traJ-II RNA: a 95-nucleotide RNA sequence from Zophobihabitans entericus. The match comes from Rfam's covariance-model search (74 bits). Taxonomically the source falls in Zophobihabitans (Bacteria, Pseudomonadati, Pseudomonadota, Gammaproteobacteria).
RNA sequence: GGGCAGGACAGGUGAAAUAGUCCUACAUCUUCAGAUGUAGGACUAUUUCACUAAGACUUAUUCGCGUGGCUCAACGUGUCCUGCUCUACGAGGUU
Numbered sequence: 001g002g003g004c005a006g007g008a009c010a011g012g013u014g015a016a017a018u019a020g021u022c023c024u025a026c027a028u029c030u031u032c033a034g035a036u037g038u039a040g041g042a043c044u045a046u047u048u049c050a051c052u053a054a055g056a057c058u059u060a061u062u063c064g065c066g067u068g069g070c071u072c073a074a075c076g077u078g079u080c081c082u083g084c085u086c087u088a089c090g091a092g093g094u095u
Stems, first nucleotide, its partner, number of pairs: 001086009012051006019044003024039006056077002064070002